Rfam assigns this 112-nucleotide sequence from Chitinophagaceae bacterium IBVUCB2 to the family "TPP riboswitch aptamer (THI element)".
The organism belongs to Chitinophagaceae, within Bacteria.
[Rfam]
RNA sequence: ACAGUGUUCCCGGGGUGUUCCGUCUCUUGCCUAAAGCAAGACUGGGACUGAGAUUAUACCCGUUAAACCUGGUCAGGGUAAUGCCUGCGUAGGGAAGGAUAUCAUCAAUUGA
Number, nucleotide and partner (000 for none) at each position: 001a000002c000003a000004g000005u000006g100007u099008u098009c097010c000011c062012g061013g060014g059015g000016u056017g048018u047019u046020c045021c044022g000023u000024c000025u000026c000027u000028u000029g000030c000031c000032u000033a000034a000035a000036g000037c000038a000039a000040g000041a000042c000043u000044g021045g020046g019047a018048c017049u000050g000051a000052g000053a000054u000055u000056a016057u000058a000059c014060c013061c012062g011063u000064u000065a000066a000067a000068c093069c092070u091071g090072g000073u000074c087075a086076g085077g084078g000079u000080a000081a000082u000083g000084c077085c076086u075087g074088c000089g000090u071091a070092g069093g068094g000095a000096a000097g009098g008099a007100u006101a000102u000103c000104a000105u000106c000107a000108a000109u000110u000111g000112a000